[Rfam]
RNA sequence: GCUGAGCCACUUAACAAUGGCUUGUAACCCAAGUGGGGGCUUUAAGGUGGUUGAAGGUUGGUUCAUCGUAUCUUGUCGGAACUCUUAAGAGGACUACUUGCUCUCCCAUUCCAAGUUGGGAGUUGGGCCUCGCAUUCUAGACGAAAGUCCAAAGUGCGAUGCCUUUAGAUUGGAGGAAACCGCGUGAGGUUGGCCUUACAGAGCAGUGUCACCUUUUGCUCUCGUCGGUGGAAGGAUAGCGUGCAAGUUCUUGAGAGCCCAAUUACCCUGGUACGAAGUUCAAAACAAGACAACCAACUUU
Numbered sequence: 001g002c003u004g005a006g007c008c009a010c011u012u013a014a015c016a017a018u019g020g021c022u023u024g025u026a027a028c029c030c031a032a033g034u035g036g037g038g039g040c041u042u043u044a045a046g047g048u049g050g051u052u053g054a055a056g057g058u059u060g061g062u063u064c065a066u067c068g069u070a071u072c073u074u075g076u077c078g079g080a081a082c083u084c085u086u087a088a089g090a091g092g093a094c095u096a097c098u099u100g101c102u103c104u105c106c107c108a109u110u111c112c113a114a115g116u117u118g119g120g121a122g123u124u125g126g127g128c129c130u131c132g133c134a135u136u137c138u139a140g141a142c143g144a145a146a147g148u149c150c151a152a153a154g155u156g157c158g159a160u161g162c163c164u165u166u167a168g169a170u171u172g173g174a175g176g177a178a179a180c181c182g183c184g185u186g187a188g189g190u191u192g193g194c195c196u197u198a199c200a201g202a203g204c205a206g207u208g209u210c211a212c213c214u215u216u217u218g219c220u221c222u223c224g225u226c227g228g229u230g231g232a233a234g235g236a237u238a239g240c241g242u243g244c245a246a247g248u249u250c251u252u253g254a255g256a257g258c259c260c261a262a263u264u265a266c267c268c269u270g271g272u273a274c275g276a277a278g279u280u281c282a283a284a285a286c287a288a289g290a291c292a293a294c295c296a297a298c299u300u301u
Base pairs, nucleotide, nucleotide: 001040002039003038004023005022006021007020008019009018011016028037029036030035044300045299046298048296049295050294051293052292053291058285059284061281064278069275071273073271074270075269078260079259082257083256084255085254087252088251089250091249092248097247098246099245100244101243103241105239106235107234109233110232111231112230113229115226117224118223119222120221121220122219123218125164126163127162128161130159131158132157133156134155135154136153138151140149141148142147172216173215174214175213176212182209183208184207185206190201191200192199

Annotation:
A member of the RNA family "Plant signal recognition particle RNA" from Cucumis sativus, 301 nucleotides long. The match comes from Rfam's covariance-model search (170 bits). Taxonomically the source falls in Cucumis (Eukaryota, Streptophyta, Embryophyta, fabids). The family is grouped with related families in Rfam's "SRP clan".